A member of the RNA family "mir-2009 microRNA precursor family" from Lytechinus variegatus, 83 nucleotides long.
Rfam 15.1 lists 3 matches to the family in 3 species.
Lineage of the source: Eukaryota > Deuterostomia > Euechinoidea > Toxopneustidae > Lytechinus.
Rfam's curators put it in the seed alignment.
RNA sequence: UCAGUGUUCUUUGGUUUUUGUGGAACAGCUCCUGUGAAUUUUAUAAGACCAUGAGUUGUCCCACAAAGAACACAGAUCGCUGU
Numbered sequence: 001u002c003a004g005u006g007u008u009c010u011u012u013g014g015u016u017u018u019u020g021u022g023g024a025a026c027a028g029c030u031c032c033u034g035u036g037a038a039u040u041u042u043a044u045a046a047g048a049c050c051a052u053g054a055g056u057u058g059u060c061c062c063a064c065a066a067a068g069a070a071c072a073c074a075g076a077u078c079g080c081u082g083u
Base pairs, nucleotide, nucleotide: 002082003081004080005079008076009075010074012072013071015069016068017067018066019065020064021063022062023061025059026058027057028056029055030054031053033051034050